[Rfam]
RNA sequence: CAGAUAUACCACGCAUCGAUUAGCUAUCGGUGGCUCAACGUAGUAUACUGGUCAAAUAAAUAACAGCUGCCUUUUGAGCGGGUUUGCUGCAAUCCGAAACGGAAUUUAUCCGCUGGACUGUGGCGCCUUUGUUAUGCCCAAAAGCAGCUGGAAC
Numbered sequence: 001c002a003g004a005u006a007u008a009c010c011a012c013g014c015a016u017c018g019a020u021u022a023g024c025u026a027u028c029g030g031u032g033g034c035u036c037a038a039c040g041u042a043g044u045a046u047a048c049u050g051g052u053c054a055a056a057u058a059a060a061u062a063a064c065a066g067c068u069g070c071c072u073u074u075u076g077a078g079c080g081g082g083u084u085u086g087c088u089g090c091a092a093u094c095c096g097a098a099a100c101g102g103a104a105u106u107u108a109u110c111c112g113c114u115g116g117a118c119u120g121u122g123g124c125g126c127c128u129u130u131g132u133u134a135u136g137c138c139c140a141a142a143a144g145c146a147g148c149u150g151g152a153a154c
Base pairs, nucleotide, nucleotide: 001050002049003048005047007045008044009043011041012040013039014032015031016030017029018028033079034078035077036076037075038074064150065149066148067147068146069145070144086124087123088122089121090120100112101111102110103109
DUF2800 RNA: a 154-nucleotide sequence. By type it is a cis-regulatory element. Rfam's curators put it in the seed alignment. Pairs were carried over by alignment from the consensus structure, which is taken from published work.